[Rfam]
RNA sequence: GGCGUAAAGAGCUCGUAGGUGGUUUGUCGCGUCGUCUGUGAAAUUCCGGGGCUUAACUCCGGGCGUGCAGGCGAUACGGGCUAACUUGAGUACUGUAGGGGUAACUGGAAUUCCUGGUGUAGCGGUGAAAUGCGCAGAUAUCAGGAGGAACACCGAUGGCGAAGGCAGGUUACUGGGCAGUUACUGACGCUGAGGAGCGAAAGCAUGGGUAGCGAACAGGAUUAGAUACCCUGGUAGUCCAUGCCGUAAACGGUGGGCGCUAGGUGUGAGGGACUUCCACGUCUUUCGUGCCGUAGCUAACGCAUUAAGCGCCCCGCCUGGGGAGUACGGCCGCAAGGCUAAAACUCAAAGGAAU
Numbered sequence: 001g002g003c004g005u006a007a008a009g010a011g012c013u014c015g016u017a018g019g020u021g022g023u024u025u026g027u028c029g030c031g032u033c034g035u036c037u038g039u040g041a042a043a044u045u046c047c048g049g050g051g052c053u054u055a056a057c058u059c060c061g062g063g064c065g066u067g068c069a070g071g072c073g074a075u076a077c078g079g080g081c082u083a084a085c086u087u088g089a090g091u092a093c094u095g096u097a098g099g100g101g102u103a104a105c106u107g108g109a110a111u112u113c114c115u116g117g118u119g120u121a122g123c124g125g126u127g128a129a130a131u132g133c134g135c136a137g138a139u140a141u142c143a144g145g146a147g148g149a150a151c152a153c154c155g156a157u158g159g160c161g162a163a164g165g166c167a168g169g170u171u172a173c174u175g176g177g178c179a180g181u182u183a184c185u186g187a188c189g190c191u192g193a194g195g196a197g198c199g200a201a202a203g204c205a206u207g208g209g210u211a212g213c214g215a216a217c218a219g220g221a222u223u224a225g226a227u228a229c230c231c232u233g234g235u236a237g238u239c240c241a242u243g244c245c246g247u248a249a250a251c252g253g254u255g256g257g258c259g260c261u262a263g264g265u266g267u268g269a270g271g272g273a274c275u276u277c278c279a280c281g282u283c284u285u286u287c288g289u290g291c292c293g294u295a296g297c298u299a300a301c302g303c304a305u306u307a308a309g310c311g312c313c314c315c316g317c318c319u320g321g322g323g324a325g326u327a328c329g330g331c332c333g334c335a336a337g338g339c340u341a342a343a344a345c346u347c348a349a350a351g352g353a354a355u
Stems, first nucleotide, its partner, number of pairs: 001318003009315001011198004016192001018191003022085003026081003030078002032074009045063007089185003092181005100174007107151001111147008122133003159166002203244006212238002217233004255314006263292012296303002320347003329340004
RNA: Bacterial small subunit ribosomal RNA, nucleotides 541 to 895